Rfam assigns this 382-nucleotide RNA sequence from Solimonas fluminis to the family "Bacterial RNase P class A". A search with the family's covariance model found it, with a score of 284 bits. Its family is annotated with dimeric ribonuclease P complex, ribonuclease P activity and tRNA processing in the Gene Ontology. Rfam classes the family as a ribozyme.
[Rfam]
RNA sequence: GGAGCCGGCCAGGCAAUCGCCGCCGCGAAAGCGGGGGAGGAAAGUCCGGGCUUCACAGGGCAAGGUGCCAGGUAAUGCCUGGGCGGCGCGAGCCGACGGAAAGUGCCACAGAGAACAGACCGCCGAUGGCCCGCAAGGGAUCAGGCAAGGGUGAAACGGUGCGGUAAGAGCGCACCGCGGGGCCGGCAACGGCAACGGCACGGUAAACCCCACCGGAAGCAAGGCCAAAUAGGGAUGGGCGCAGCCGCAAGGCUGCGACGCGCGGCCCGCGCGCCAUCCGGGUAGGCUGCUAAAGCGCCGCGGUGACGCGUCGCGUAGAGGAAUGGUUGCCUCGGCCCGCAAGGGCUCAGGACAGAACCCGGCUUAUCGGCCGACUCCCCAU
Dot-bracket structure: ((((.(((((((((((((.((.((((....)))).))....[[[.[[[[[((((...[[[[..(((((((((.....)))))(((((....)))).)((...(((((............(((((..((((((....))).))))))..)).......((((((.......))))))(((..((((....))))..)).)..)))..)))))))).))))...((((......((((((....................(((((.]]]]))))))))))).....))))......(((.((((....)))).)))..........)))))))..........................]]]]]]]].).))))).))))....